The record is an 82-nucleotide sequence, which matches "DUF3800-IX RNA" in Rfam. From the family's description: Actinobacteria, Firmicutes (1 example), Nitrospirae, Proteobacteria, Verrucomicrobia (1 example). Rfam classes the family as a small RNA. Pairs were carried over by alignment from the consensus structure, which is taken from published work.
RNA sequence: ACCCCACCCCGCGAAAAGUGGCCGAUUGUGGCCGCCUGCCCCCAUCUAUGUUGAUGGAAUCGGGCUAGCAGGGUGGGUUGCU
Number, nucleotide and partner (000 for none) at each position: 001a078002c077003c076004c000005c075006a074007c073008c000009c071010c000011g069012c068013g000014a000015a000016a000017a000018g035019u034020g033021g032022c031023c030024g000025a000026u000027u000028g000029u000030g023031g022032c021033c020034g019035c018036c000037u000038g065039c064040c063041c062042c000043c000044a000045u000046c000047u000048a000049u000050g000051u000052u000053g000054a000055u000056g000057g000058a000059a000060u000061c000062g041063g040064g039065c038066u000067a000068g012069c011070a000071g009072g000073g007074u006075g005076g003077g002078u001079u000080g000081c000082u000